The record is an 83-nucleotide RNA, which matches "ivy-DE RNA" in Rfam.
RNA sequence: UGACCAGGGGGUCGGGAUGCUCUGCCGACGGAGCGACCUAGGGGUACAGGGAGUGCCUCCGCAAGGACCGGGUCAGGCAGCAA
Number, nucleotide and partner (000 for none) at each position: 001u075002g074003a073004c072005c071006a000007g000008g000009g000010g069011g068012u067013c066014g039015g038016g037017a000018u035019g000020c033021u032022c031023u030024g029025c000026c000027g000028a000029c024030g023031g022032a021033g020034c000035g018036a000037c016038c015039u014040a000041g059042g058043g057044g056045u055046a054047c053048a000049g000050g000051g000052a000053g047054u046055g045056c044057c043058u042059c041060c000061g000062c000063a000064a000065g000066g013067a012068c011069c010070g000071g005072g004073u003074c002075a001076g000077g000078c000079a000080g000081c000082a000083a000
The match comes from Rfam's covariance-model search (80 bits).